[Rfam]
RNA sequence: CCUUGCCAUUUGGUAUCUGACAUGUGGUCUUUUGUGACUAUUUGUCUCGAAAUAUGGCAUAUAACUAGGGGGAACAGACCUUGCGACAUUGGUGGCUCCUCUUAUGAUCCUCCAAUUACUAUAUCGCCGUUUACAUUU
Numbered sequence: 001c002c003u004u005g006c007c008a009u010u011u012g013g014u015a016u017c018u019g020a021c022a023u024g025u026g027g028u029c030u031u032u033u034g035u036g037a038c039u040a041u042u043u044g045u046c047u048c049g050a051a052a053u054a055u056g057g058c059a060u061a062u063a064a065c066u067a068g069g070g071g072g073a074a075c076a077g078a079c080c081u082u083g084c085g086a087c088a089u090u091g092g093u094g095g096c097u098c099c100u101c102u103u104a105u106g107a108u109c110c111u112c113c114a115a116u117u118a119c120u121a122u123a124u125c126g127c128c129g130u131u132u133a134c135a136u137u138u
Stems, first nucleotide, its partner, number of pairs: 004059006019046004024041006073131003077127001088116005094110002097107001
A member of the RNA family "Small nucleolar RNA F1/F2/snoR5a" from Leersia perrieri, 138 nucleotides long. It scores 128 bits against the family's covariance model. This family contains F1, F2 and snoR5a sequences, all of which are members of the the H/ACA class of snoRNA that guide the sites of modification of uridines to pseudouridines. The family has 8 seed sequences and 325 matches in Rfam 15.1.